[Rfam]
RNA sequence: UACUAACAAACCCUACCUCCACCUCCACGUGGUGAUCGCUGGGAGCUCUUUCUUAAUGAAGAACUAUAAACGGAGAAGG
Numbered sequence: 001u002a003c004u005a006a007c008a009a010a011c012c013c014u015a016c017c018u019c020c021a022c023c024u025c026c027a028c029g030u031g032g033u034g035a036u037c038g039c040u041g042g043g044a045g046c047u048c049u050u051u052c053u054u055a056a057u058g059a060a061g062a063a064c065u066a067u068a069a070a071c072g073g074a075g076a077a078g079g
Base pairs, nucleotide, nucleotide: 012079013078014077016075018073019072021033022032023031044065045064047062048061049060050059052058

A member of the RNA family "drz-agam-1 ribozyme" from Hermetia illucens, 79 nucleotides long. The family has 7 seed sequences and 10,507 matches in Rfam 15.1. The base pairs follow the family's consensus structure, which is taken from published work. The organism belongs to Hermetia, within Eukaryota.